[Rfam]
RNA sequence: CUGUGCCCCAGGCUUGUUUUCAGUUGCCUGCGGCUGGUUAGGAUGACUCAGGCAGCUAAAGCAAGUCUGGGACAUGA
Numbered sequence: 001c002u003g004u005g006c007c008c009c010a011g012g013c014u015u016g017u018u019u020u021c022a023g024u025u026g027c028c029u030g031c032g033g034c035u036g037g038u039u040a041g042g043a044u045g046a047c048u049c050a051g052g053c054a055g056c057u058a059a060a061g062c063a064a065g066u067c068u069g070g071g072a073c074a075u076g077a
Base pairs, nucleotide, nucleotide: 003075004074007071008070010068011067012066013065014064015063016062017061018060019059020058022057023056024055025054026053027052028051029050030049032047
A member of the RNA family "mir-1788 microRNA precursor family" from Sphenodon punctatus, 77 nucleotides long. The family's consensus secondary structure was predicted with RNAalifold. Rfam 15.1 lists 504 matches to the family in 475 species. Its family is annotated with RISC complex and miRNA-mediated post-transcriptional gene silencing in the Gene Ontology. The match comes from Rfam's covariance-model search (81 bits).